[Rfam]
The record is a 68-nucleotide RNA from Glaciimonas immobilis, which matches "Betaproteobacteria toxic small RNA" in Rfam.
A search with the family's covariance model found it, with a score of 56 bits.
Rfam describes the family as follows. Overexpression in amino aid rich medium attenuates growth, suggesting role in repressing amino acid intake and metabolism.
A reference for the family is Kimelman et al. (2012), "A vast collection of microbial genes that are toxic to bacteria", Genome Res.
RNA sequence: UGUCUCCUCCAACACCUCCUAAAGGUUUGGAUUUACCCCGCGGCUACCAAGCCCGCGGGGUUUUUUUU
Numbered sequence: 001u002g003u004c005u006c007c008u009c010c011a012a013c014a015c016c017u018c019c020u021a022a023a024g025g026u027u028u029g030g031a032u033u034u035a036c037c038c039c040g041c042g043g044c045u046a047c048c049a050a051g052c053c054c055g056c057g058g059g060g061u062u063u064u065u066u067u068u
Stems, first nucleotide, its partner, number of pairs: 008031005014026003035061008